RNA sequence: AUGAAGAGGAUGAGAGAGGCCUUUCUAAAAGGCGCCGAAGGGGUAAACCAGAUCCAGGUGAAACUCUCAGGCAAAAGGAUCAUCUUUGGACC
Numbered sequence: 001a002u003g004a005a006g007a008g009g010a011u012g013a014g015a016g017a018g019g020c021c022u023u024u025c026u027a028a029a030a031g032g033c034g035c036c037g038a039a040g041g042g043g044u045a046a047a048c049c050a051g052a053u054c055c056a057g058g059u060g061a062a063a064c065u066c067u068c069a070g071g072c073a074a075a076a077g078g079a080u081c082a083u084c085u086u087u088g089g090a091c092c
Base pairs, nucleotide, nucleotide: 006087007086008085009084010083011082012081013080020032021031022030023029034072035071036070037068038067041066042065043064047059048058